Background: The record is a 104-nucleotide RNA from Chryseobacterium salivictor, which matches "SAM riboswitch aptamer (S box leader)" in Rfam. Gene Ontology term of the family: regulation of gene expression. From the family's description: The SAM riboswitch is found upstream of a number of genes which code for proteins involved in methionine or cysteine biosynthesis in Gram-positive bacteria. The organism belongs to Chryseobacterium, within Bacteria. The family's consensus secondary structure is taken from published work.
[Rfam]
RNA sequence: AUGUUAUUAAGAAAGGUGGAGAGAUUAGACUCAAUGAAACCUUGGCAACCCUUCGGAAACGGAGAAGGUGCUACAUUCUAUCCCGAUUUGGGAAGAGAUAACAG
Numbered sequence: 001a002u003g004u005u006a007u008u009a010a011g012a013a014a015g016g017u018g019g020a021g022a023g024a025u026u027a028g029a030c031u032c033a034a035u036g037a038a039a040c041c042u043u044g045g046c047a048a049c050c051c052u053u054c055g056g057a058a059a060c061g062g063a064g065a066a067g068g069u070g071c072u073a074c075a076u077u078c079u080a081u082c083c084c085g086a087u088u089u090g091g092g093a094a095g096a097g098a099u100a101a102c103a104g
Stems, first nucleotide, its partner, number of pairs: 002103007013043005021032003026080004044072004049068002051064004076096001081093005